[Rfam]
Description
mir-H7 microRNA precursor family: a 69-nucleotide RNA from Simplexvirus humanalpha1. The organism belongs to Simplexvirus humanalpha1, within Viruses. Its family is annotated with RISC complex and miRNA-mediated post-transcriptional gene silencing in the Gene Ontology.
RNA sequence: GGGGAGAAAGGGGUCUGCAACCAAAGGUGGUCUGGGUCCGUCCUUUGGAUCCCGACCCCUCUUCUUCCC
Numbered sequence: 001g002g003g004g005a006g007a008a009a010g011g012g013g014u015c016u017g018c019a020a021c022c023a024a025a026g027g028u029g030g031u032c033u034g035g036g037u038c039c040g041u042c043c044u045u046u047g048g049a050u051c052c053c054g055a056c057c058c059c060u061c062u063u064c065u066u067c068c069c
Base pairs, nucleotide, nucleotide: 001069002068003067004066005065006064007063009060010059011058012057013056014055015054017052021048022047023046024045025044026043027042028040029039